[Rfam]
RNA sequence: GGUCAAUGAUGAUUGGUAAAAGGUCUGAUUGCACUGAAUGUCACAGUCCCUUCCUUGCCCUCAACUCCCAGCAGCCCAUUUUUCCCCCUAGCACAUUAAGUCAUGUGUGUGGGAUGGUGGAGCAGCUGACAAUCAGGGAUUUUGUCAGUGUGUGUUUUGGAGAGUGAAAUAUUCACAGCUGACUAGUAUCCAACAGAACACAUUCCUCAGGAGCUUGAUGAGUGGCAGGCAGGGUGUGACAGUGCAUGAUCUCAAGUUUUCAAUCUGAGACC
Numbered sequence: 001g002g003u004c005a006a007u008g009a010u011g012a013u014u015g016g017u018a019a020a021a022g023g024u025c026u027g028a029u030u031g032c033a034c035u036g037a038a039u040g041u042c043a044c045a046g047u048c049c050c051u052u053c054c055u056u057g058c059c060c061u062c063a064a065c066u067c068c069c070a071g072c073a074g075c076c077c078a079u080u081u082u083u084c085c086c087c088c089u090a091g092c093a094c095a096u097u098a099a100g101u102c103a104u105g106u107g108u109g110u111g112g113g114a115u116g117g118u119g120g121a122g123c124a125g126c127u128g129a130c131a132a133u134c135a136g137g138g139a140u141u142u143u144g145u146c147a148g149u150g151u152g153u154g155u156u157u158u159g160g161a162g163a164g165u166g167a168a169a170u171a172u173u174c175a176c177a178g179c180u181g182a183c184u185a186g187u188a189u190c191c192a193a194c195a196g197a198a199c200a201c202a203u204u205c206c207u208c209a210g211g212a213g214c215u216u217g218a219u220g221a222g223u224g225g226c227a228g229g230c231a232g233g234g235u236g237u238g239a240c241a242g243u244g245c246a247u248g249a250u251c252u253c254a255a256g257u258u259u260u261c262a263a264u265c266u267g268a269g270a271c272c
Stems, first nucleotide, its partner, number of pairs: 001272004038252001040250003047227001049225002052222001065213004069128004074123002086113003091108003136191001138190003142186002151177004155171001157169002